This 132-nucleotide RNA from Larus smithsonianus belongs to the Rfam family "Small nucleolar RNA SNORA51". About the family: ACA51 is a member of the H/ACA class of snoRNA that guide the sites of modification of uridines to pseudouridines. A search with the family's covariance model found it, with a score of 52 bits.

[Rfam]
RNA sequence: CAUCUCCCCACGCUUACCGCAGGCAGCUGCUCCUCCGGCUGCCUGUACAGAACGGGGAGGGAGAGCAGCCCCUCCAGCGCGCCCCAGCCUGGGCAACUGUGCCAUGGCUGGAGCGUGCCCAGGGGGACAUGU
Dot-bracket structure: ..((((((...........(((...((((......))))...))).........))))))............(((.(.......(((.(..(((......)))..).))).........).)))........